RNA sequence: UCGGGUGAUGCUGUAGCAGCACGGAAUGGUUUGUGGGUUACAAAGAGAUACAGGCCGUACUGUGCUGCAUCAGUAGAACCUGA
Numbered sequence: 001u002c003g004g005g006u007g008a009u010g011c012u013g014u015a016g017c018a019g020c021a022c023g024g025a026a027u028g029g030u031u032u033g034u035g036g037g038u039u040a041c042a043a044a045g046a047g048a049u050a051c052a053g054g055c056c057g058u059a060c061u062g063u064g065c066u067g068c069a070u071c072a073g074u075a076g077a078a079c080c081u082g083a
Stems, first nucleotide, its partner, number of pairs: 001083006013071001016068009026058010

The record is an 83-nucleotide RNA from Scophthalmus maximus, which matches "mir-15 microRNA precursor family" in Rfam. The base pairs follow the family's consensus structure, which was predicted with RNAalifold. Its Rfam clan is "mir-15 clan". Rfam describes the family as follows. This family represents the related mir-15a and mir-15b sequences. In humans miR-15a and miR-16 are clustered within 0.5 kb at 13q14. The match comes from Rfam's covariance-model search (63 bits). The family has 164 seed sequences and 2,045 matches in Rfam 15.1. Its family is annotated with miRNA-mediated post-transcriptional gene silencing and RISC complex in the Gene Ontology.